Annotation:
A member of the RNA family "c-di-GMP-I riboswitch aptamer" from Halalkalibacter hemicellulosilyticus, 85 nucleotides long.
RNA sequence: UACCGAUAAUGGCAAACUUAUCGAAAGGUAGGGACGCAAAGCCACGGGCCUAAAGCAUUAAUGCUAUGGUAGCCGAGCCACCGAA
Numbered sequence: 001u002a003c004c005g006a007u008a009a010u011g012g013c014a015a016a017c018u019u020a021u022c023g024a025a026a027g028g029u030a031g032g033g034a035c036g037c038a039a040a041g042c043c044a045c046g047g048g049c050c051u052a053a054a055g056c057a058u059u060a061a062u063g064c065u066a067u068g069g070u071a072g073c074c075g076a077g078c079c080a081c082c083g084a085a
Stems, first nucleotide, its partner, number of pairs: 012037002017032006041078002045075003048070003055064003

The source organism's lineage runs through Bacteria, Bacillati, Bacillota, Halalkalibacter and Halalkalibacter hemicellulosilyticus.